[Rfam]
RNA sequence: CUUCGUUGCCCUCCUUGGGCGUUUCCUCCCUAGACUUGGGCCGCCACGACAGUGUGCGGCCCUUUUUUUUGUCCGGA
Numbered sequence: 001c002u003u004c005g006u007u008g009c010c011c012u013c014c015u016u017g018g019g020c021g022u023u024u025c026c027u028c029c030c031u032a033g034a035c036u037u038g039g040g041c042c043g044c045c046a047c048g049a050c051a052g053u054g055u056g057c058g059g060c061c062c063u064u065u066u067u068u069u070u071g072u073c074c075g076g077a
Base pairs, nucleotide, nucleotide: 008020009019010018011017038062039061040060041059042058043057045056046055047054

The record is a 77-nucleotide sequence from Allobosea sp. Leaf344, which matches "Makes More Granules Regulator RNA (mmgR)" in Rfam. About the family: SuhB later renamed mmgR (makes more granules regulator) was a putative non-coding RNA found multiple times in the Agrobacterium tumefaciens genome and related alpha-proteobacteria. Other non-coding RNAs uncovered in the same analysis include: speF, ybhL, metA, and serC.Several studies inSinorhizobium meliloti showed that suhB element is indeed a non-coding RNA:firstly it was detected on Northern blot and called Sm8RNA, secondly in an RNAseq study referred to as SmelC689.The mutant phenotype's (strain lacking the small RNA) cytoplasm contains higher content of polyhydroxybutyrate (PBH)storage granules than wild type strain. The sRNA is required to limit the PBH intracellular accumulation when the nitrogen-fixing Sinorhizobium meliloti is under condition of surplus carbon in relation to nitrogen. It has been renamed to mmgR. Further study confirmed that mmgR fine-tunes the regulation of PBH storage.Northern blot confirmed the expression of the sRNA in other rhizobia species. MmgR homologues were found in most alpha-proteobacteria. The family has 87 seed sequences and 1,791 matches in Rfam 15.1. A search with the family's covariance model found it, with a score of 72 bits. The family's RNA type in Rfam is small RNA. Rfam links the family to the GO terms response to nitrogen compound, DNA-templated transcription, termination and protein binding.